The record is a 75-nucleotide sequence, which matches "L13-Bacteroidia ribosomal protein leader" in Rfam. On this family, see Eckert and Weinberg, BMC Microbiol 2020: "Discovery of 20 novel ribosomal leader candidates in bacteria and archaea". Pairs were carried over by alignment from the consensus structure, which is taken from published work.
[Rfam]
RNA sequence: GGGUACCCUCUGGUAUACCCAAAUCUGCGUGUAAAUAGUCCGUUUCCAUUGGCCUGGACGGGCGGUUUGUGAAUC
Numbered sequence: 001g002g003g004u005a006c007c008c009u010c011u012g013g014u015a016u017a018c019c020c021a022a023a024u025c026u027g028c029g030u031g032u033a034a035a036u037a038g039u040c041c042g043u044u045u046c047c048a049u050u051g052g053c054c055u056g057g058a059c060g061g062g063c064g065g066u067u068u069g070u071g072a073a074u075c
Stems, first nucleotide, its partner, number of pairs: 001020004032069005038063005045058004